A member of the RNA family "Small nucleolar RNA SNORA33" from Erinaceus europaeus, 132 nucleotides long.
The base pairs follow the family's consensus structure, which was predicted with PFOLD.
Rfam's curators write: ACA33 is a member of the H/ACA class of snoRNA that guide the sites of modification of uridines to pseudouridines.
Rfam links the family to the GO terms RNA processing and nucleolus.
Rfam classes the family as an H/ACA-box small nucleolar RNA.
[Rfam]
RNA sequence: UAGCCAGUCAAUGAAUAUGUUUACCUGAUUGUGUUUCUGCAGCAACUUUUUUUUAUCACUGGUGAUAGCAAUGCCAUGUUAUGAGCCUUAAUGAUGUUGGGGUCUUGAAGGUCCCUGAAAGUGGCUAUAUGA
Numbered sequence: 001u002a003g004c005c006a007g008u009c010a011a012u013g014a015a016u017a018u019g020u021u022u023a024c025c026u027g028a029u030u031g032u033g034u035u036u037c038u039g040c041a042g043c044a045a046c047u048u049u050u051u052u053u054u055a056u057c058a059c060u061g062g063u064g065a066u067a068g069c070a071a072u073g074c075c076a077u078g079u080u081a082u083g084a085g086c087c088u089u090a091a092u093g094a095u096g097u098u099g100g101g102g103u104c105u106u107g108a109a110g111g112u113c114c115c116u117g118a119a120a121g122u123g124g125c126u127a128u129a130u131g132a
Base pairs, nucleotide, nucleotide: 003063004062005061006060007059018041019040020039073125074124075123076122085112086111087110088109089108091106093104094103095102